[Rfam]
RNA: RT-7 RNA
RNA sequence: GCCGGAGUUCCGUAAAGUCAAGGCUUUCGGAAGAGUGUCUUGUAAAUUCAGUAACCUACCGGCGGCGGAAAAAUGCCCGCAGCGGAUCAUUCGGCGGUCGCGUUGUGUUGUCGUCGGUUAUGAAAAACCAAUCUGCGGCGGGGUUUGUCCCUUUUGGGAAUCCUCCGCCUCAUUUAGCAAGUGGUUACUUUCUAU
Numbered sequence: 001g002c003c004g005g006a007g008u009u010c011c012g013u014a015a016a017g018u019c020a021a022g023g024c025u026u027u028c029g030g031a032a033g034a035g036u037g038u039c040u041u042g043u044a045a046a047u048u049c050a051g052u053a054a055c056c057u058a059c060c061g062g063c064g065g066c067g068g069a070a071a072a073a074u075g076c077c078c079g080c081a082g083c084g085g086a087u088c089a090u091u092c093g094g095c096g097g098u099c100g101c102g103u104u105g106u107g108u109u110g111u112c113g114u115c116g117g118u119u120a121u122g123a124a125a126a127a128c129c130a131a132u133c134u135g136c137g138g139c140g141g142g143g144u145u146u147g148u149c150c151c152u153u154u155u156g157g158g159a160a161u162c163c164u165c166c167g168c169c170u171c172a173u174u175u176a177g178c179a180a181g182u183g184g185u186u187a188c189u190u191u192c193u194a195u
Stems, first nucleotide, its partner, number of pairs: 001038002008032005014026001016025002050189007058118008078107007085099003134172002137169007148159003
Dot-bracket structure: ((.....(((((.(.((......))).)))))....))...........(((((((.((((((((............((((((((((.........))).)))))))...))))))))...............((.(((((((....(((......)))...))))))).))..........)))))))......